Record summary:
Rfam assigns this 59-nucleotide RNA sequence from Rheum palmatum to the family "Plastid-psbA-4 3UTR RNA".

RNA sequence: AUUAAAGGAGCAAUACCCAAUUUCUUGUUCUAUCGAGCGGGUUGGUAUUGCUCCUUUAA
Numbered sequence: 001a002u003u004a005a006a007g008g009a010g011c012a013a014u015a016c017c018c019a020a021u022u023u024c025u026u027g028u029u030c031u032a033u034c035g036a037g038c039g040g041g042u043u044g045g046u047a048u049u050g051c052u053c054c055u056u057u058a059a
Base pairs, nucleotide, nucleotide: 004057005056006055007054008053009052010051011050012049013048014047015046019042022039024037025036026035027034
Plastid psbA-4 is a non-coding RNA (ncRNA) present in plastids. It was identified in inverted repeat sequences in the 3 prime untranslate region (3UTR) of photosystem II quinone-binding protein (psbA).
The source organism's lineage runs through Eukaryota, Tracheophyta, Spermatophyta, eudicotyledons and Rheum.